[Rfam]
The record is a 79-nucleotide sequence from Oncorhynchus tshawytscha, which matches "mir-199 microRNA precursor family" in Rfam. Gene Ontology terms of the family: miRNA-mediated post-transcriptional gene silencing and RISC complex. Lineage of the source: Eukaryota > Metazoa > Bilateria > Actinopteri > Oncorhynchus. A reference for the family is Mourelatos et al. (2002), "miRNPs: a novel class of ribonucleoproteins containing numerous microRNAs", Genes Dev. From the family's description: This family consists of the microRNA (miRNA) precursor mir-199 which appears to be specific to humans. Animal miRNAs are transcribed as ~70nt precursors and subsequently processed by the Dicer enzyme to give a ~22nt product. In this case the mature sequence comes from the 3' arm of the precursor. The extents of the hairpin precursors are not generally known and are estimated based on hairpin prediction. The family has 83 seed sequences and 1,828 matches in Rfam 15.1.
RNA sequence: CCCCCCCUGGCCCAGUGUUCAGACUACCUGUUCAGGAAGUAGGGUUGCACAGUAGUCUGCACAUUGGUUAGGCUGGGGU
Numbered sequence: 001c002c003c004c005c006c007c008u009g010g011c012c013c014a015g016u017g018u019u020c021a022g023a024c025u026a027c028c029u030g031u032u033c034a035g036g037a038a039g040u041a042g043g044g045u046u047g048c049a050c051a052g053u054a055g056u057c058u059g060c061a062c063a064u065u066g067g068u069u070a071g072g073c074u075g076g077g078g079u
Stems, first nucleotide, its partner, number of pairs: 012067007020059007028052004033047002